A member of the RNA family "FMN riboswitch aptamer (RFN element)", 135 nucleotides long.
[Rfam]
RNA sequence: UAAGGUUCUCAGGGCGGAGUGAAAGUCUCCACCGGUGGUGAUUACAUAUUCUGUAUAAGUCCACGAGCAUUCUGUAAUGUUGAUUUGGUGUAAAUCCAAAACCGACGGUGAUAGUCCGGAUGGAAGAGAAUUAAU
Numbered sequence: 001u002a003a004g005g006u007u008c009u010c011a012g013g014g015c016g017g018a019g020u021g022a023a024a025g026u027c028u029c030c031a032c033c034g035g036u037g038g039u040g041a042u043u044a045c046a047u048a049u050u051c052u053g054u055a056u057a058a059g060u061c062c063a064c065g066a067g068c069a070u071u072c073u074g075u076a077a078u079g080u081u082g083a084u085u086u087g088g089u090g091u092a093a094a095u096c097c098a099a100a101a102c103c104g105a106c107g108g109u110g111a112u113a114g115u116c117c118g119g120a121u122g123g124a125a126g127a128g129a130a131u132u133a134a135u
Stems, first nucleotide, its partner, number of pairs: 004132007017029003031115002033104002035064004059102002067080003084100005106118003
Dot-bracket structure: ...(((((((......(((.......))).[[((((((....................[[))))..(((........)))...(((((.......)))))]])).(((.....]]))).......)))))))...

The family's consensus secondary structure is taken from published work.